Description: c-di-GMP-I riboswitch aptamer: an 87-nucleotide sequence from Bacillus licheniformis. The source organism's lineage runs through Bacteria, Bacillota, Caryophanales, Bacillaceae and Bacillus licheniformis.

RNA sequence: AGCAGAUAAAGGCAAACCUGCGGAAACGCAGGGACGCAAAGCCAUGGCCUAAGGUGCUGACGGUGCUACGGUUGACAGGUUGCCGAA
Numbered sequence: 001a002g003c004a005g006a007u008a009a010a011g012g013c014a015a016a017c018c019u020g021c022g023g024a025a026a027c028g029c030a031g032g033g034a035c036g037c038a039a040a041g042c043c044a045u046g047g048c049c050u051a052a053g054g055u056g057c058u059g060a061c062g063g064u065g066c067u068a069c070g071g072u073u074g075a076c077a078g079g080u081u082g083c084c085g086a087a
Base pairs, nucleotide, nucleotide: 012037013036017032018031019030020029021028022027040081041080042079043078045077046076047072048071049070054066055065056064057063